[Rfam]
RNA sequence: UGUUUCGAGGAGCGUUGCAAGGCCACCCCCCGGCCCCAGGCUCGAAACCACUUCCCAGUGCAACGUCGCUCACCCCCA
Numbered sequence: 001u002g003u004u005u006c007g008a009g010g011a012g013c014g015u016u017g018c019a020a021g022g023c024c025a026c027c028c029c030c031c032g033g034c035c036c037c038a039g040g041c042u043c044g045a046a047a048c049c050a051c052u053u054c055c056c057a058g059u060g061c062a063a064c065g066u067c068g069c070u071c072a073c074c075c076c077c078a
Stems, first nucleotide, its partner, number of pairs: 002048007021035004
The family of this 78-nucleotide RNA sequence from Pseudaquabacterium pictum is "SAH (S-adenosyl-L-homocysteine) riboswitch aptamer".
A reference for the family is Wang et al. (2008), "Riboswitches that sense S-adenosylhomocysteine and activate genes involved in coenzyme recycling", Mol Cell.
Pairs were carried over by alignment from the consensus structure, which is taken from published work.